Rfam assigns this 89-nucleotide RNA from Paenibacillus tyrphae to the family "c-di-GMP-I riboswitch aptamer". The family's consensus secondary structure is taken from published work. The source organism's lineage runs through Bacteria, Bacillati, Caryophanales, Paenibacillaceae and Paenibacillus. The match comes from Rfam's covariance-model search (76 bits).

[Rfam]
RNA sequence: AUUCGUUCAUGGCAAACCUGCCGAAAGGCAGCGACGCAAAGCUUAGGGUCUAAGGUCUACAGACGGACUACGACAGCCUGGCCGCCGAA
Numbered sequence: 001a002u003u004c005g006u007u008c009a010u011g012g013c014a015a016a017c018c019u020g021c022c023g024a025a026a027g028g029c030a031g032c033g034a035c036g037c038a039a040a041g042c043u044u045a046g047g048g049u050c051u052a053a054g055g056u057c058u059a060c061a062g063a064c065g066g067a068c069u070a071c072g073a074c075a076g077c078c079u080g081g082c083c084g085c086c087g088a089a
Stems, first nucleotide, its partner, number of pairs: 012037002018031005041082003045079003048074003055068004